A member of the RNA family "U4atac minor spliceosomal RNA" from Habropoda laboriosa, 125 nucleotides long.
Rfam 15.1 lists 1,648 matches to the family in 818 species.
Lineage of the source: Eukaryota > Panarthropoda > Endopterygota > Anthophila > Habropoda.

RNA sequence: UUCAUCCUUGUCUUUGGGGAGCAAAGUAUUCAAUGAUCGUUUAGUGAGAGUACUGUUGCUGAAGCCCAUUAAUAUUAUUAUGUCUGCAUCCAUGCAUUUUUGUGUGUGAUGCAAUUUUUGGGGGC
Numbered sequence: 001u002u003c004a005u006c007c008u009u010g011u012c013u014u015u016g017g018g019g020a021g022c023a024a025a026g027u028a029u030u031c032a033a034u035g036a037u038c039g040u041u042u043a044g045u046g047a048g049a050g051u052a053c054u055g056u057u058g059c060u061g062a063a064g065c066c067c068a069u070u071a072a073u074a075u076u077a078u079u080a081u082g083u084c085u086g087c088a089u090c091c092a093u094g095c096a097u098u099u100u101u102g103u104g105u106g107u108g109a110u111g112c113a114a115u116u117u118u119u120g121g122g123g124g125c
Stems, first nucleotide, its partner, number of pairs: 005019004021059004025054007038044001086112005091106006
Dot-bracket structure: ....((((.......)))).(((((((((((......(.....)...))))))).))))..........................(((((((((((....)))))).))))).............